[Rfam]
RNA sequence: GUACUAUGCUAGAUGAUCGCUUUUAUACUAUAGGUCUAAAAGAGGAAAGUCUGGACAGUAUAGAACAGGACAGUUGCUAACGGCAACCGAGGGUGACCUUAGGGAAAGUGCCACAGAGACUAUACCGCCACUUUUGUGGUAAGGGUGAAAAGAGUGGGUCUAGAGUAUCUAGAAUAGGUGAAUAAUAUCACUGAAAGUAAGAGCCCACAAUUGUUCAUGGUGACAUGAAUAAUAGGUAAACCCUGUCCACUGCAAGGAAUGAGGUUAUUGGCUGUUCGCUAGACCUUGUUGAUAUCCGCUUGAGCUAAGGAGUAAUUUUUAGCCUAGAUAGAUGAUCAUCCUAAUGACAGAAUCCAGCUUAUUGCAUAGUAUCAAU
Number, nucleotide and partner (000 for none) at each position: 001g372002u371003a370004c369005u368006a367007u366008g365009c364010u000011a362012g340013a339014u338015g337016a336017u335018c334019g000020c042021u041022u040023u039024u038025a037026u000027a035028c034029u000030a000031u000032a000033g000034g028035u027036c000037u025038a024039a023040a022041a021042g020043a000044g000045g000046a000047a360048a359049g358050u000051c357052u356053g355054g354055a353056c252057a251058g250059u249060a000061u000062a000063g277064a276065a275066c274067a000068g248069g247070a246071c245072a244073g087074u086075u085076g084077c083078u000079a000080a000081c000082g000083g077084c076085a075086a074087c073088c102089g100090a099091g098092g097093g000094u000095g000096a000097c092098c091099u090100u089101a000102g088103g243104g242105a000106a000107a000108g241109u240110g237111c236112c235113a000114c000115a000116g000117a000118g000119a000120c000121u000122a000123u000124a000125c144126c143127g140128c139129c138130a137131c136132u000133u000134u000135u000136g131137u130138g129139g128140u127141a000142a000143g126144g125145g000146u000147g000148a000149a000150a000151a000152g000153a000154g208155u207156g206157g205158g204159u000160c000161u000162a000163g000164a000165g000166u000167a000168u000169c000170u000171a000172g000173a000174a000175u000176a000177g000178g000179u000180g000181a000182a000183u000184a000185a000186u000187a000188u000189c000190a000191c000192u000193g000194a000195a000196a000197g000198u000199a000200a000201g000202a000203g000204c158205c157206c156207a155208c154209a000210a000211u232212u231213g230214u229215u228216c227217a226218u225219g224220g000221u000222g000223a000224c219225a218226u217227g216228a215229a214230u213231a212232a211233u000234a000235g112236g111237u110238a000239a000240a109241c108242c104243c103244u072245g071246u070247c069248c068249a059250c058251u057252g056253c000254a000255a000256g297257g296258a295259a289260u288261g287262a286263g285264g284265u000266u000267a000268u282269u281270g280271g279272c278273u000274g066275u065276u064277c063278g272279c271280u270281a269282g268283a000284c264285c263286u262287u261288g260289u259290u000291g000292a000293u000294a000295u258296c257297c256298g000299c000300u000301u000302g000303a000304g323305c322306u321307a320308a319309g318310g317311a316312g000313u000314a000315a000316u311317u310318u309319u308320u307321a306322g305323c304324c000325u000326a000327g000328a000329u000330a000331g000332a000333u000334g018335a017336u016337c015338a014339u013340c012341c000342u000343a000344a000345u000346g000347a000348c000349a000350g000351a000352a000353u055354c054355c053356a052357g051358c049359u048360u047361a000362u011363u000364g009365c008366a007367u006368a005369g004370u003371a002372u001373c000374a000375a000376u000
The record is a 376-nucleotide RNA from TM7 phylum sp. oral taxon 348, which matches "Bacterial RNase P class A" in Rfam. The organism belongs to Candidatus Saccharimonadota, within Bacteria. The family's RNA type in Rfam is ribozyme. The base pairs follow the family's consensus structure, which is taken from published work.